The record is a 97-nucleotide RNA sequence from Burkholderia multivorans, which matches "Burkholderia sRNA Bp1_Cand684_SIPHT" in Rfam. A reference for the family is Khoo et al. (2012), "Computational discovery and RT-PCR validation of novel Burkholderia conserved and Burkholderia pseudomallei unique sRNAs", BMC Genomics. It is annotated as a small RNA. Taxonomically the source falls in Burkholderia multivorans (Bacteria, Betaproteobacteria, Burkholderiaceae, Burkholderia cepacia complex).
[Rfam]
RNA sequence: AGAAAAGUAACCGCCGCCCCGCGCAGGGGCGACGCUAAUAGACCGACACGAUCCCAGGUGCUUCACGCCCAACGCAGGCGGACCACCCAAACCGCCA
Numbered sequence: 001a002g003a004a005a006a007g008u009a010a011c012c013g014c015c016g017c018c019c020c021g022c023g024c025a026g027g028g029g030c031g032a033c034g035c036u037a038a039u040a041g042a043c044c045g046a047c048a049c050g051a052u053c054c055c056a057g058g059u060g061c062u063u064c065a066c067g068c069c070c071a072a073c074g075c076a077g078g079c080g081g082a083c084c085a086c087c088c089a090a091a092c093c094g095c096c097a
Base pairs, nucleotide, nucleotide: 011081012080013079014078015031016030017029018028019027020026058073059072